[Rfam]
RNA: ffh sRNA
Organism: Martelella mediterranea
RNA sequence: GAGCCCGGAGGUCAACAUCCGACAGCGCGAUGCGCCCUCGGAUGGAUUUUUG
Number, nucleotide and partner (000 for none) at each position: 001g000002a000003g000004c000005c000006c000007g000008g000009a000010g000011g000012u000013c000014a000015a000016c044017a043018u042019c041020c040021g039022a038023c000024a000025g035026c034027g033028c032029g000030a000031u000032g028033c027034g026035c025036c000037c000038u022039c021040g020041g019042a018043u017044g016045g000046a000047u000048u000049u000050u000051u000052g000